[Rfam]
RNA: tRNA
RNA sequence: GGUUGUAUGGUGUAGUGGUAGCACGUCGGACUUUGAAUCCGUCGACCCGAGUUCGACCCUCGGUACGACCU
Numbered sequence: 001g002g003u004u005g006u007a008u009g010g011u012g013u014a015g016u017g018g019u020a021g022c023a024c025g026u027c028g029g030a031c032u033u034u035g036a037a038u039c040c041g042u043c044g045a046c047c048c049g050a051g052u053u054c055g056a057c058c059c060u061c062g063g064u065a066c067g068a069c070c071u
Stems, first nucleotide, its partner, number of pairs: 001070007010024004027041004047063005